The family of this 97-nucleotide RNA from Spiroplasma diminutum is "Purine riboswitch aptamer".

RNA sequence: AUAAAUGUAAUUAAUAGAACUUGUAUAAGCCAACAUAUUGGGUUGGUGUCUCUACGAUUGAACCUAUUCAAUCUCUAUAAUUUCUAUUUAUAAUUCU
Numbered sequence: 001a002u003a004a005a006u007g008u009a010a011u012u013a014a015u016a017g018a019a020c021u022u023g024u025a026u027a028a029g030c031c032a033a034c035a036u037a038u039u040g041g042g043u044u045g046g047u048g049u050c051u052c053u054a055c056g057a058u059u060g061a062a063c064c065u066a067u068u069c070a071a072u073c074u075c076u077a078u079a080a081u082u083u084c085u086a087u088u089u090a091u092a093a094u095u096c097u
Base pairs, nucleotide, nucleotide: 018083019082021080022079023078024077025076029047030046031045032044033043034042056073057072058071059070060069061068062067